[Rfam]
RNA sequence: AGGGUCAAUGAUGACCAUUGGUUUCAUAUGAGUUGUGUAUCAUGACUAUAUGUCUGGGAGUCUGAGGUCCAC
Numbered sequence: 001a002g003g004g005u006c007a008a009u010g011a012u013g014a015c016c017a018u019u020g021g022u023u024u025c026a027u028a029u030g031a032g033u034u035g036u037g038u039a040u041c042a043u044g045a046c047u048a049u050a051u052g053u054c055u056g057g058g059a060g061u062c063u064g065a066g067g068u069c070c071a072c
Stems, first nucleotide, its partner, number of pairs: 002070005
RNA: Small nucleolar RNA SNORD113/SNORD114 family